[Rfam]
RNA sequence: GUUGGAUAUAGUGGUGUAUAUCUGUAAGCUAAAUGUCUGAGCAACUGGAUGUAGAAUAGUAUGAGUUAUGAGAUUGUGAUUUAGGACUUUCUUAUGUAGAGAGUUGGUCUUAUUCAAGUACUGAGUUAACAUUAGUUAGAAGAUGUAGGUCUUCUGACAAGGUUAUUAACGAAGUGGGUAAUGCGUGAGGCUGGUAACAGAGCAGCGAAAACCACUCGCUUGGUACGGUGAUUGAGAUAGCUGGCUUGAGUAAGAACCUAUUUCUGCUUAUAACAAUAGUUACUAAACGAAAUUCCUU
Numbered sequence: 001g002u003u004g005g006a007u008a009u010a011g012u013g014g015u016g017u018a019u020a021u022c023u024g025u026a027a028g029c030u031a032a033a034u035g036u037c038u039g040a041g042c043a044a045c046u047g048g049a050u051g052u053a054g055a056a057u058a059g060u061a062u063g064a065g066u067u068a069u070g071a072g073a074u075u076g077u078g079a080u081u082u083a084g085g086a087c088u089u090u091c092u093u094a095u096g097u098a099g100a101g102a103g104u105u106g107g108u109c110u111u112a113u114u115c116a117a118g119u120a121c122u123g124a125g126u127u128a129a130c131a132u133u134a135g136u137u138a139g140a141a142g143a144u145g146u147a148g149g150u151c152u153u154c155u156g157a158c159a160a161g162g163u164u165a166u167u168a169a170c171g172a173a174g175u176g177g178g179u180a181a182u183g184c185g186u187g188a189g190g191c192u193g194g195u196a197a198c199a200g201a202g203c204a205g206c207g208a209a210a211a212c213c214a215c216u217c218g219c220u221u222g223g224u225a226c227g228g229u230g231a232u233u234g235a236g237a238u239a240g241c242u243g244g245c246u247u248g249a250g251u252a253a254g255a256a257c258c259u260a261u262u263u264c265u266g267c268u269u270a271u272a273a274c275a276a277u278a279g280u281u282a283c284u285a286a287a288c289g290a291a292a293u294u295c296c297u298u
Base pairs, nucleotide, nucleotide: 001045002044003043004023005022006021007020008019009018010017028042029041030040047296048295049294052291057285058284059283060282061281065274066273067272068271069270070269071268076267077266078264079263082260083259088256089255091254092253093252094251095250097248101247102246103245104244105243106242107241108240109236110235112233114231115230116229118226119225120224121223122222123221124220125219126218127165128164129163130162132160133159135158136157137156138155139154140153141152142151143150144149173216174215175214176213177212182209184207185206186205191200192199193198
This 298-nucleotide RNA sequence from Piromyces finnis belongs to the Rfam family "Metazoan signal recognition particle RNA". Gene Ontology terms of the family: SRP-dependent cotranslational protein targeting to membrane, signal sequence recognition and signal recognition particle, endoplasmic reticulum targeting. A search with the family's covariance model found it, with a score of 140 bits. From the family's description: The signal recognition particle (SRP) is a universally conserved ribonucleoprotein. It is involved in the co-translational targeting of proteins to membranes. The eukaryotic SRP consists of a 300-nucleotide 7S RNA and six proteins: SRPs 72, 68, 54, 19, 14, and 9. For this family Rfam cites "Towards the structure of the mammalian signal recognition particle" (Wild et al., Curr Opin Struct Biol, 2002).